[Rfam]
RNA sequence: AAACUUACCUGGCUGGGAAGUCUUCGUGACCAUGAAGACGGAGCUUCUAUGGCGAGGCUCGAGCAUUGCACUUUAGCUUCGGGCUGACCCGUAGGGCGGUCCCGAGUUGGGAUAGGCCCACAGCUUAAUUUUUGCGUUUAGGGGAUAGCGUUCGCGCUUCCCCGUU
Dot-bracket structure: ...........((((((((((.(((((..........)))))))))))((((.(.(((.(((((...........)).))).)))..))))).(((((..((......))..).).))).))))...............(.(((..((((....))))..))).).